[Rfam]
RNA sequence: ACAUACACUGAGUGGCCAGAUUAUUAUGUGUUCAGACAUCAUAAUAAUCUGGCCAUUCAGUGUAAUU
Numbered sequence: 001a002c003a004u005a006c007a008c009u010g011a012g013u014g015g016c017c018a019g020a021u022u023a024u025u026a027u028g029u030g031u032u033c034a035g036a037c038a039u040c041a042u043a044a045u046a047a048u049c050u051g052g053c054c055a056u057u058c059a060g061u062g063u064a065a066u067u
Stems, first nucleotide, its partner, number of pairs: 004064014019049010
Description: Rfam assigns this 67-nucleotide RNA from Cnephaeus nilssonii to the family "mir-9256 microRNA precursor family". The family's consensus secondary structure was predicted with RNAalifold. Its family is annotated with miRNA-mediated post-transcriptional gene silencing and RISC complex in the Gene Ontology. It scores 81 bits against the family's covariance model.